Small nucleolar RNA U3: a 211-nucleotide RNA sequence from Carlito syrichta.
Rfam describes the family as follows. Small nucleolar RNAs (snoRNAs) are involved in the processing and modification of rRNA in the nucleolus. There are two main classes of snoRNAs: the box C/D class, and the box H/ACA class.
Pairs were carried over by alignment from the consensus structure, which is taken from published work.
It scores 90 bits against the family's covariance model.
A reference for the family is Zwieb (1997), "The uRNA database", Nucleic Acids Res.
By type it is a C/D-box small nucleolar RNA.

RNA sequence: CAGAACUAUACUUUCAAGGAUCAUUUCUGUACUUCAUUACUAGAGAAGUUCCUUUUAACGUGUAGAGAACCAGAAAUCACAAGGAGGAAAUGCAGUGUUCUUUCCUGAGUGUGAAGCUGGCACUUAGUGUUUUGCUGUAACUGCUGUUUACCACUGAUCCUUCUUCUUUUCUUCCAGGAAAGUGAGAGGGAGAGGAUGCUAAAAAAAAGUU
Number, nucleotide and partner (000 for none) at each position: 001c000002a041003g040004a000005a038006c000007u036008a000009u000010a033011c000012u031013u000014u000015c029016a028017a000018g026019g025020a000021u000022c000023a000024u000025u019026u018027c000028u016029g015030u000031a012032c000033u010034u000035c000036a007037u000038u005039a000040c003041u002042a000043g000044a000045g000046a000047a000048g000049u000050u066051c065052c000053u000054u000055u062056u000057a000058a000059c000060g000061u000062g055063u000064a000065g051066a050067g000068a000069a000070c000071c000072a000073g000074a000075a000076a211077u000078c209079a000080c000081a000082a000083g000084g000085a000086g000087g000088a000089a000090a000091u000092g000093c000094a000095g199096u198097g197098u196099u195100c194101u193102u192103u191104c190105c189106u188107g000108a000109g161110u000111g159112u000113g000114a000115a000116g000117c000118u000119g152120g151121c000122a149123c000124u000125u146126a145127g144128u143129g141130u140131u139132u000133u137134g000135c000136u000137g133138u000139a131140a130141c129142u000143g128144c127145u126146g125147u000148u000149u122150a000151c120152c119153a000154c000155u000156g000157a000158u000159c111160c000161u109162u000163c000164u185165u184166c182167u181168u180169u179170u178171c177172u176173u000174c000175c000176a172177g171178g170179a169180a168181a167182g166183u000184g165185a164186g000187a000188g106189g105190g104191a103192g102193a101194g100195g099196a098197u097198g096199c095200u000201a000202a000203a000204a000205a000206a000207a000208a000209g078210u000211u076